[Rfam]
RNA sequence: UAUUAUUAAGGUGAUGGGGUUCACCUUUAAGUGCUUUGUGCUGAUGACUCCUGGAUUGAA
Numbered sequence: 001u002a003u004u005a006u007u008a009a010g011g012u013g014a015u016g017g018g019g020u021u022c023a024c025c026u027u028u029a030a031g032u033g034c035u036u037u038g039u040g041c042u043g044a045u046g047a048c049u050c051c052u053g054g055a056u057u058g059a060a
Stems, first nucleotide, its partner, number of pairs: 010025004016051006033041002
This 60-nucleotide sequence from Fervidicella metallireducens belongs to the Rfam family "Fluoride riboswitch aptamer (crcB RNA motif)".
The organism belongs to Fervidicella metallireducens, within Bacteria.